[Rfam]
DUF805b RNA: a 36-nucleotide RNA. Rfam classes the family as a cis-regulatory element. Rfam's curators put it in the seed alignment.
RNA sequence: AAGGCGAAAACCGAAAAGCCUAUAACAGAGUAGGUA
Numbered sequence: 001a002a003g004g005c006g007a008a009a010a011c012c013g014a015a016a017a018g019c020c021u022a023u024a025a026c027a028g029a030g031u032a033g034g035u036a
Stems, first nucleotide, its partner, number of pairs: 002021004010035003